RNA: mir-219 microRNA precursor family
RNA sequence: CUGAUUGUCCAAACGCAAUUCUUGUGCUUGUGUGAAACAGGAGUUGUGGAUGGACAUCACGC
Numbered sequence: 001c002u003g004a005u006u007g008u009c010c011a012a013a014c015g016c017a018a019u020u021c022u023u024g025u026g027c028u029u030g031u032g033u034g035a036a037a038c039a040g041g042a043g044u045u046g047u048g049g050a051u052g053g054a055c056a057u058c059a060c061g062c
Stems, first nucleotide, its partner, number of pairs: 001061001002059004007055005014048011